[Rfam]
RNA sequence: CUACGAACGGGGAGCAUCGACGCGCGGCUCUCCCUCCGGUCGCCCGAGCCGCGCCGAGCCAGUGGCGAGCCCGACCCGUCCCACC
Numbered sequence: 001c002u003a004c005g006a007a008c009g010g011g012g013a014g015c016a017u018c019g020a021c022g023c024g025c026g027g028c029u030c031u032c033c034c035u036c037c038g039g040u041c042g043c044c045c046g047a048g049c050c051g052c053g054c055c056g057a058g059c060c061a062g063u064g065g066c067g068a069g070c071c072c073g074a075c076c077c078g079u080c081c082c083a084c085c
Stems, first nucleotide, its partner, number of pairs: 005081001007079005014059002022054008038072002040068005
Rfam assigns this 85-nucleotide sequence to the family "c-di-GMP-II-GCG riboswitch aptamer". Its Rfam clan is "c-di-GMP_II riboswitch clan". The sequence is in the family's curated seed alignment. On this family, see Weinberg et al., Proc Natl Acad Sci U S A 2017: "Bioinformatic analysis of riboswitch structures uncovers variant classes with altered ligand specificity".